The family of this 60-nucleotide sequence from Molossus molossus is "Ma3 gene ribosomal frameshift signal". NCBI's taxonomy places the organism under Eukaryota, Chordata, Sarcopterygii, Mammalia, Molossus.
RNA sequence: CGGAAAUGGUGACUGGACCUGGGGAAAGAGCCAUCCCAAGCCCAAGGCUAAAUAGGCUCA
Numbered sequence: 001c002g003g004a005a006a007u008g009g010u011g012a013c014u015g016g017a018c019c020u021g022g023g024g025a026a027a028g029a030g031c032c033a034u035c036c037c038a039a040g041c042c043c044a045a046g047g048c049u050a051a052a053u054a055g056g057c058u059c060a
Stems, first nucleotide, its partner, number of pairs: 014044003018040001020038005028059005
The literature on the family includes a 2006 paper in J Biol Chem by Wills et al., "A functional -1 ribosomal frameshift signal in the human paraneoplastic Ma3 gene".